RNA sequence: UAGCUAGUUUACUAGGGUUCCGCCGGCGAAUGCCGGGACUGGUCCGAGAGUAAACCGCCCCCCAUCGCGGGAGCGACACGGAAGGAUAAAAGCCUGGGAGAU
Numbered sequence: 001u002a003g004c005u006a007g008u009u010u011a012c013u014a015g016g017g018u019u020c021c022g023c024c025g026g027c028g029a030a031u032g033c034c035g036g037g038a039c040u041g042g043u044c045c046g047a048g049a050g051u052a053a054a055c056c057g058c059c060c061c062c063c064a065u066c067g068c069g070g071g072a073g074c075g076a077c078a079c080g081g082a083a084g085g086a087u088a089a090a091a092g093c094c095u096g097g098g099a100g101a102u
Base pairs, nucleotide, nucleotide: 007055008054009053010052011051012050015045016044020042021041022039023036024035025034026033027032056075057074058073060071061070062069077097079100083095084094085093
A member of the RNA family "Guanidine-I riboswitch aptamer" from Paenibacillus arenilitoris, 102 nucleotides long. A search with the family's covariance model found it, with a score of 90 bits.